Source information
A member of the RNA family "glmS glucosamine-6-phosphate activated ribozyme aptamer" from Neobacillus thermocopriae, 165 nucleotides long. The match comes from Rfam's covariance-model search (143 bits). The base pairs follow the family's consensus structure, which is taken from published work. This entry contains a glucosamine-6-phosphate activated ribozyme that is found in the mRNA for GlmS. GlmS is an enzyme that uses fructose-6-phosphate and glutamine to generate glucosamine-6-phosphate. The ribozyme catalyses self cleavage of the glmS mRNA that is thought to regulate GlmS activity. NCBI's taxonomy places the organism under Bacteria, Bacillati, Bacillota, Caryophanales, Neobacillus.

[Rfam]
RNA sequence: UUUCUUUUAAAAGCGCCUGGACUAACCAUCAGAGGUUUGGUUAGUUGACGAGGAGGAGGUUUAUCGAGUUUUCGGCGGAUACCUCCCGGUUGAGCGCACAACCGAUAAUUCCUUCUUUAAAACACAGGGGUAACUCUGUGCACAAAGGGAAGGAUAUGCGCAUAU
Numbered sequence: 001u002u003u004c005u006u007u008u009a010a011a012a013g014c015g016c017c018u019g020g021a022c023u024a025a026c027c028a029u030c031a032g033a034g035g036u037u038u039g040g041u042u043a044g045u046u047g048a049c050g051a052g053g054a055g056g057a058g059g060u061u062u063a064u065c066g067a068g069u070u071u072u073c074g075g076c077g078g079a080u081a082c083c084u085c086c087c088g089g090u091u092g093a094g095c096g097c098a099c100a101a102c103c104g105a106u107a108a109u110u111c112c113u114u115c116u117u118u119a120a121a122a123c124a125c126a127g128g129g130g131u132a133a134c135u136c137u138g139u140g141c142a143c144a145a146a147g148g149g150a151a152g153g154a155u156a157u158g159c160g161c162a163u164a165u
Base pairs, nucleotide, nucleotide: 020046021045022044023043024042025041026040027039028038055086056085057084058083059082064075065074066073067072087104088103089102090101091100092099110154111153112152113151114150115149123140124139125138126137127136128135129134